[Rfam]
RNA sequence: AAAGUUAAUCAGAUGGUCGCGGAAGUAAGAACCGAAAGGUUGCUUCUGAGGAAAGUCCGGGCUCCAUAGGGCAAGGUGCUGGGUAACGCCCAGUGGGAGAAAUCCUAAGGACAGUGCAACAGAGAUAUACCGCCAAACAGCGGCCGGUCCGAUGACUGACUGAGCGUUUGGUAAGGGUGGAAAGGCGAGGUAAGAGCUCACCGGCAGCCUGGUGACAGGCUGGCCCUGCAAACCCCACUUGGAGCAAGACCGAAUAGGGAGACUAUAAAACGGCCCGUUUUUGUCUCCGGGUAAGGUCGCUUGAGGCCGUUGGUAACAACGGUCCCAGAUAGAUGAUCAUCACCUUCUGAAAGGAAGGAACAGAACCCGGCUUAUAGAUUGGCUUUGCAU
Numbered sequence: 001a002a003a004g005u006u007a008a009u010c011a012g013a014u015g016g017u018c019g020c021g022g023a024a025g026u027a028a029g030a031a032c033c034g035a036a037a038g039g040u041u042g043c044u045u046c047u048g049a050g051g052a053a054a055g056u057c058c059g060g061g062c063u064c065c066a067u068a069g070g071g072c073a074a075g076g077u078g079c080u081g082g083g084u085a086a087c088g089c090c091c092a093g094u095g096g097g098a099g100a101a102a103u104c105c106u107a108a109g110g111a112c113a114g115u116g117c118a119a120c121a122g123a124g125a126u127a128u129a130c131c132g133c134c135a136a137a138c139a140g141c142g143g144c145c146g147g148u149c150c151g152a153u154g155a156c157u158g159a160c161u162g163a164g165c166g167u168u169u170g171g172u173a174a175g176g177g178u179g180g181a182a183a184g185g186c187g188a189g190g191u192a193a194g195a196g197c198u199c200a201c202c203g204g205c206a207g208c209c210u211g212g213u214g215a216c217a218g219g220c221u222g223g224c225c226c227u228g229c230a231a232a233c234c235c236c237a238c239u240u241g242g243a244g245c246a247a248g249a250c251c252g253a254a255u256a257g258g259g260a261g262a263c264u265a266u267a268a269a270a271c272g273g274c275c276c277g278u279u280u281u282u283g284u285c286u287c288c289g290g291g292u293a294a295g296g297u298c299g300c301u302u303g304a305g306g307c308c309g310u311u312g313g314u315a316a317c318a319a320c321g322g323u324c325c326c327a328g329a330u331a332g333a334u335g336a337u338c339a340u341c342a343c344c345u346u347c348u349g350a351a352a353g354g355a356a357g358g359a360a361c362a363g364a365a366c367c368c369g370g371c372u373u374a375u376a377g378a379u380u381g382g383c384u385u386u387g388c389a390u
Base pairs, nucleotide, nucleotide: 001386002385003384004383005382006381007380008379009378010377011375012341013340014339015338016337017336018335020048021047022046023045024044025043026042027041028040053373054372055371057370058369059368060367061366062244063243064242065241069276070275071274072273074240075239076238077237078236079093080092081091082090083089094108095106096105097104098103109235110234114233115232116229117228118227130176131175132172133171134170135169136168137167138166184202185201187199188198189197204224205222206221207220208219209218210217211216248298249297250296251295258288259287260286261285262284263283267281268280269279270278271277305324306323307322308321309320310319311318312317
The family of this 390-nucleotide RNA sequence from Desulfitobacterium hafniense is "Bacterial RNase P class A". Rfam classes the family as a ribozyme. Taxonomically the source falls in Desulfitobacterium hafniense (Bacteria, Bacillota, Clostridia, Desulfitobacterium). From the family's description: Ribonuclease P (RNase P) is a ubiquitous endoribonuclease, found in archaea, bacteria and eukarya as well as chloroplasts and mitochondria. Pairs were carried over by alignment from the consensus structure, which is taken from published work.